[Rfam]
RNA sequence: AACCUUCCUUCUUGGCGCUGCUACGUCAUUGACGACUAGUAGUGUAUGUUAAGGAAGGUAAAACAUGUCCUUUGGAUAUUCGGAUCUCCUUCGGUGCUGUUCUCGCAGAACUUCGAAUAGCGUCAUCCUCUGGAUUCGAGACAUUA
Numbered sequence: 001a002a003c004c005u006u007c008c009u010u011c012u013u014g015g016c017g018c019u020g021c022u023a024c025g026u027c028a029u030u031g032a033c034g035a036c037u038a039g040u041a042g043u044g045u046a047u048g049u050u051a052a053g054g055a056a057g058g059u060a061a062a063a064c065a066u067g068u069c070c071u072u073u074g075g076a077u078a079u080u081c082g083g084a085u086c087u088c089c090u091u092c093g094g095u096g097c098u099g100u101u102c103u104c105g106c107a108g109a110a111c112u113u114c115g116a117a118u119a120g121c122g123u124c125a126u127c128c129u130c131u132g133g134a135u136u137c138g139a140g141a142c143a144u145u146a
Base pairs, nucleotide, nucleotide: 003058004057005056006055007054008053009052010051015045016044017043018042021039022038023037070075079140080139081138082137083136084135085134086133087132093124094123097120098119099118100117101116102115
This 146-nucleotide RNA from Nippostrongylus brasiliensis belongs to the Rfam family "Nematode snoRNA ceN88". Rfam links the family to the GO terms nucleolus and RNA processing. It scores 94 bits against the family's covariance model.